Shown here is a 75-nucleotide RNA from Hemibagrus wyckioides, a member of the family "mir-196 microRNA precursor family". Pairs were carried over by alignment from the consensus structure, which was predicted with PFOLD. The organism belongs to Hemibagrus, within Eukaryota. Rfam links the family to the GO terms RISC complex and gene silencing by miRNA. On this family, see Lagos-Quintana et al., RNA 2003: "New microRNAs from mouse and human".
RNA sequence: UGAGUGAUUUAGGUAGUUUUAUGUUGUUGGGCUCCAUUUCGAAUCCCCACAACACGAAACUGUCUUAAUUGCCUU
Numbered sequence: 001u002g003a004g005u006g007a008u009u010u011a012g013g014u015a016g017u018u019u020u021a022u023g024u025u026g027u028u029g030g031g032c033u034c035c036a037u038u039u040c041g042a043a044u045c046c047c048c049a050c051a052a053c054a055c056g057a058a059a060c061u062g063u064c065u066u067a068a069u070u071g072c073c074u075u
Base pairs, nucleotide, nucleotide: 004072005071006070007069008068009067011065012064013063014062015061016060017059018058019057022054023053024052025051026050027049029047030046031045